RNA sequence: CUUCAGCGAGCCCAGCCACAGCGGCGAGGACUCCGGACGGUCCUGCCCGUAGGUGCUGAGCAGCGCCUGGGCCUC
Numbered sequence: 001c002u003u004c005a006g007c008g009a010g011c012c013c014a015g016c017c018a019c020a021g022c023g024g025c026g027a028g029g030a031c032u033c034c035g036g037a038c039g040g041u042c043c044u045g046c047c048c049g050u051a052g053g054u055g056c057u058g059a060g061c062a063g064c065g066c067c068u069g070g071g072c073c074u075c
Base pairs, nucleotide, nucleotide: 015025016024017023031071032070033069038065039064043060044059048055049054